RNA: Phenylalanine leader peptide
Organism: Acanthosepion pharaonis
RNA sequence: AAAAACCCGGGGGUUCCUUUUUUUUUUUUUUUUUUUUUUUUUUAAAAAAAAAAAAAAAAAAAAAAAGGGGGGGGGCCCCCCAAAACCCUUUAAAAAAAGGGGAAAGGGGGGGCCAAUUUUUU
Numbered sequence: 001a002a003a004a005a006c007c008c009g010g011g012g013g014u015u016c017c018u019u020u021u022u023u024u025u026u027u028u029u030u031u032u033u034u035u036u037u038u039u040u041u042u043u044a045a046a047a048a049a050a051a052a053a054a055a056a057a058a059a060a061a062a063a064a065a066a067g068g069g070g071g072g073g074g075g076c077c078c079c080c081c082a083a084a085a086c087c088c089u090u091u092a093a094a095a096a097a098a099g100g101g102g103a104a105a106g107g108g109g110g111g112g113c114c115a116a117u118u119u120u121u122u
Base pairs, nucleotide, nucleotide: 016068017067018066019065021063022062023061024060025059026058027057028056029055030054031053032052033051034050036048037047038046039045074114075113076112077111078110079109080108081107